A member of the RNA family "Purine riboswitch aptamer" from Gorillibacterium sp., 100 nucleotides long. Lineage of the source: Bacteria > Bacillati > Caryophanales > Paenibacillaceae > Gorillibacterium. The match comes from Rfam's covariance-model search (66 bits).
RNA sequence: GAUAAAAAAUUAGUUGCUUUUCGUAUAAUUCCGGGGAUUGGCCCGAAAGUCUCUACGAGAUCACCGUAAUGAUCUGGCUACGAAAAGGGAAAGCUACCCG
Numbered sequence: 001g002a003u004a005a006a007a008a009a010u011u012a013g014u015u016g017c018u019u020u021u022c023g024u025a026u027a028a029u030u031c032c033g034g035g036g037a038u039u040g041g042c043c044c045g046a047a048a049g050u051c052u053c054u055a056c057g058a059g060a061u062c063a064c065c066g067u068a069a070u071g072a073u074c075u076g077g078c079u080a081c082g083a084a085a086a087g088g089g090a091a092a093g094c095u096a097c098c099c100g
Stems, first nucleotide, its partner, number of pairs: 018086008029048002032045004058075006